[Rfam]
RNA sequence: GAAUGAUUGUAGCAUGGUACUGUGCACGGAAACUGAAUCAUGGGUUUCAAAUGUCUGUGCCUGCUCUGAGUUCCUUAUUGGUUCUUUGAUUUGCGGGCCUGAUUUGAACCCACAUUU
Number, nucleotide and partner (000 for none) at each position: 001g000002a000003a000004u000005g000006a000007u000008u000009g000010u000011a000012g025013c024014a023015u022016g000017g000018u000019a000020c000021u000022g015023u014024g013025c012026a000027c000028g000029g000030a000031a000032a000033c000034u000035g000036a000037a000038u000039c000040a000041u000042g000043g100044g099045u000046u097047u096048c000049a000050a000051a000052u000053g090054u089055c088056u000057g084058u000059g082060c000061c000062u000063g000064c000065u000066c000067u000068g000069a000070g000071u000072u000073c000074c000075u000076u000077a000078u000079u000080g000081g000082u059083u000084c057085u000086u000087u000088g055089a054090u053091u000092u000093g000094c000095g000096g047097g046098c000099c044100u043101g000102a000103u000104u000105u000106g000107a000108a000109c000110c000111c000112a000113c000114a000115u000116u000117u000
The family of this 117-nucleotide RNA is "Small nucleolar RNA snoR100". On this family, see Marker et al., Curr Biol 2002: "Experimental RNomics: identification of 140 candidates for small non-messenger RNAs in the plant Arabidopsis thaliana".